[Rfam]
RNA sequence: UGUCACGUGGAUGACGACUGUUACGUGUCAUGUUCAGAUUGGUCAAUGAAAAUAACAAUGCAUUUCAUCUUUCAUAGAGUUGACAUCCAACAACAUGAUAUGUGACAGUCAUCAUCC
Dot-bracket structure: ...................((((.((..(((.((....((((............................................)))).)).)))..)).))))...........
RNA: MIR1520 microRNA precursor family